[Rfam]
RNA sequence: UGACUGGAUGAUGAAAUAAAUCAGACGGACUCCCAGUGAUCCUUUUUAUAUGAUUAACACAUCCAAAUACUUGUUACAUCA
Numbered sequence: 001u002g003a004c005u006g007g008a009u010g011a012u013g014a015a016a017u018a019a020a021u022c023a024g025a026c027g028g029a030c031u032c033c034c035a036g037u038g039a040u041c042c043u044u045u046u047u048a049u050a051u052g053a054u055u056a057a058c059a060c061a062u063c064c065a066a067a068u069a070c071u072u073g074u075u076a077c078a079u080c081a
Base pairs, nucleotide, nucleotide: 001081002080003079005078006077
Dot-bracket structure: (((.((......................................................................)))))
The family of this 81-nucleotide sequence from Protea cynaroides is "Small nucleolar RNA R12".
Rfam's curators write: snoR12 is a C/D box small nucleolar RNA, which acts as a methylation guide for 25S ribosomal RNA in plants. snoR12 has been alternatively named snoZ44 in Arabidopsis and snoZ131 in rice.
Pairs were carried over by alignment from the consensus structure, which was predicted with PFOLD.
The source organism's lineage runs through Eukaryota, Viridiplantae, Streptophytina, Euphyllophyta and Protea.
A reference for the family is Chen et al. (2003), "The high diversity of snoRNAs in plants: identification and comparative study of 120 snoRNA genes from Oryza sativa", Nucleic Acids Res.